Description: Rfam assigns this 83-nucleotide sequence from Aphidius gifuensis to the family "mir-263 microRNA precursor family". Rfam links the family to the GO terms RISC complex and miRNA-mediated post-transcriptional gene silencing. Lineage of the source: Eukaryota > Eumetazoa > Bilateria > Dicondylia > Aphidius. A search with the family's covariance model found it, with a score of 57 bits.

[Rfam]
RNA sequence: AGAACACUGUCAAUGGCACUGGAAGAAUUCACGGGGGAUUAAGUAACAGUCCCGUGGAGCUCUCGUGUCAUACACAGCGAUCA
Number, nucleotide and partner (000 for none) at each position: 001a000002g000003a081004a000005c079006a000007c077008u076009g075010u074011c000012a000013a071014u070015g069016g068017c067018a066019c000020u000021g063022g062023a000024a000025g000026a000027a000028u000029u057030c056031a055032c054033g053034g052035g000036g000037g000038a000039u000040u000041a000042a000043g000044u000045a000046a000047c000048a000049g000050u000051c000052c034053c033054g032055u031056g030057g029058a000059g000060c000061u000062c022063u021064c000065g000066u018067g017068u016069c015070a014071u013072a000073c000074a010075c009076a008077g007078c000079g005080a000081u003082c000083a000
On this family, see Li et al., BMC Genomics 2009: "Direct sequencing and expression analysis of a large number of miRNAs in Aedes aegypti and a multi-species survey of novel mosquito miRNAs".